[Rfam]
Nucleotides: 037
Stems, first nucleotide, its partner, number of pairs: 016031006
Number, partner (000 for none) and nucleotide at each position: 001000c002000g003000u004000g005000c006000c007000g008000a009000a010000a011000c012000c013000u014000c015000u016031g017030a018029u019028g020027c021026c022000g023000u024000a025000a026021g027020g028019c029018g030017u031016u032000g033000a034000g035000c036000a037000c